[Rfam]
RNA: PyrR binding site
Organism: Gracilibacillus kekensis
RNA sequence: AGUACAUUUAAUUCAGUCCCGUGAGGCUGACAAGGACAACGGAUUUGCAAAAGGGAUACGUCUAUGGAUGAUUUGUACCCUUUUGUCUGAAACUUCUUGUCACAGUUGGGCAAGGAGUUUUUUUAUU
Numbered sequence: 001a002g003u004a005c006a007u008u009u010a011a012u013u014c015a016g017u018c019c020c021g022u023g024a025g026g027c028u029g030a031c032a033a034g035g036a037c038a039a040c041g042g043a044u045u046u047g048c049a050a051a052a053g054g055g056a057u058a059c060g061u062c063u064a065u066g067g068a069u070g071a072u073u074u075g076u077a078c079c080c081u082u083u084u085g086u087c088u089g090a091a092a093c094u095u096c097u098u099g100u101c102a103c104a105g106u107u108g109g110g111c112a113a114g115g116a117g118u119u120u121u122u123u124u125a126u127u
Base pairs, nucleotide, nucleotide: 005035007033008032013030014029015028016027017026018025050084051083052082053081054080055079057077058076059075060074063071089121090120091119092118093117094116095115096114097113098112099111100110101109